Description:
This 174-nucleotide RNA sequence from Streptomyces vietnamensis belongs to the Rfam family "c-di-AMP riboswitch aptamer (ydaO/yuaA leader)".
RNA sequence: GUCGCGCAAGCGCCGAAGGCAGGAGUGGGGGACCCAAGGUAAGUGCCGGGCCCGGCCGUUGAGACAGACGGCCGACGACCGGCUUGGGGUGAAGCCGCGUGCUAGGACGCGCGGCCGGGCAACUUUCCGGCCCGAACCCGACAGCUCACCUCACAGGCGUCGGUGAGGAGAAUC
Numbered sequence: 001g002u003c004g005c006g007c008a009a010g011c012g013c014c015g016a017a018g019g020c021a022g023g024a025g026u027g028g029g030g031g032a033c034c035c036a037a038g039g040u041a042a043g044u045g046c047c048g049g050g051c052c053c054g055g056c057c058g059u060u061g062a063g064a065c066a067g068a069c070g071g072c073c074g075a076c077g078a079c080c081g082g083c084u085u086g087g088g089g090u091g092a093a094g095c096c097g098c099g100u101g102c103u104a105g106g107a108c109g110c111g112c113g114g115c116c117g118g119g120c121a122a123c124u125u126u127c128c129g130g131c132c133c134g135a136a137c138c139c140g141a142c143a144g145c146u147c148a149c150c151u152c153a154c155a156g157g158c159g160u161c162g163g164u165g166a167g168g169a170g171a172a173u174c
Stems, first nucleotide, its partner, number of pairs: 011159004025154006035086004087139003095114006117133004